[Rfam]
RNA sequence: GGUUUCCAUUGGUGCAAAUCCAAUCACCUUAAUAGGAGAUGAUAAGCAAUUCCCCUCUGGUAGCAAAUGGUUAUCCAUUAAGCGGGGACUUUAGUAUU
Numbered sequence: 001g002g003u004u005u006c007c008a009u010u011g012g013u014g015c016a017a018a019u020c021c022a023a024u025c026a027c028c029u030u031a032a033u034a035g036g037a038g039a040u041g042a043u044a045a046g047c048a049a050u051u052c053c054c055c056u057c058u059g060g061u062a063g064c065a066a067a068u069g070g071u072u073a074u075c076c077a078u079u080a081a082g083c084g085g086g087g088a089c090u091u092u093a094g095u096a097u098u
Base pairs, nucleotide, nucleotide: 009023010022011021012020052087053086054085055084059075060074061073062072063071064070
Record summary: Shown here is a 98-nucleotide RNA from Dysosma versipellis, a member of the family "Plastid-rps12 3UTR RNA". The sequence is in the family's curated seed alignment. For this family Rfam cites "Retrograde signaling in plants: A critical review focusing on the GUN pathway and beyond" (Richter et al., Plant Commun, 2023). Lineage of the source: Eukaryota > Viridiplantae > Ranunculales > Podophylleae > Dysosma. Rfam describes the family as follows. Plastid rpl20 is a non-coding RNA (ncRNA) recognised in plastids. It was found in the three prime untranslated region (3UTR) of rps12 gene, its 3UTR location sugest a role in transcript maduration.